[Rfam]
RNA: Lysine riboswitch aptamer
Organism: Clostridium pasteurianum
RNA sequence: ACCUAGGGUAGAGGUGCUGUAAUUAUAAGUAAUUGUUCUUAGCUUGCAGGCGAAGAGGAACAAGGAAAGGAAUUAUAGCCGAAGGAGAUAUUUUGGCAAAGGGAUCUUCUGGUUUUGUAUAAAAUAUAUGCAAAACUGUCACUAUUGGUUUUGGUAUAGUGGAGAGCUACAGGGUAC
Numbered sequence: 001a002c003c004u005a006g007g008g009u010a011g012a013g014g015u016g017c018u019g020u021a022a023u024u025a026u027a028a029g030u031a032a033u034u035g036u037u038c039u040u041a042g043c044u045u046g047c048a049g050g051c052g053a054a055g056a057g058g059a060a061c062a063a064g065g066a067a068a069g070g071a072a073u074u075a076u077a078g079c080c081g082a083a084g085g086a087g088a089u090a091u092u093u094u095g096g097c098a099a100a101g102g103g104a105u106c107u108u109c110u111g112g113u114u115u116u117g118u119a120u121a122a123a124a125u126a127u128a129u130g131c132a133a134a135a136c137u138g139u140c141a142c143u144a145u146u147g148g149u150u151u152u153g154g155u156a157u158a159g160u161g162g163a164g165a166g167c168u169a170c171a172g173g174g175u176a177c
Base pairs, nucleotide, nucleotide: 008170009169010168011167016079017078018077019076020075021074022073023072024071033063034062035061036060037059038058039057083110084109085108086107087106088105089104091102092101093100094099111137112136113135114134115133116132117131118130119129120128121127139162140161141160142159143158144157145156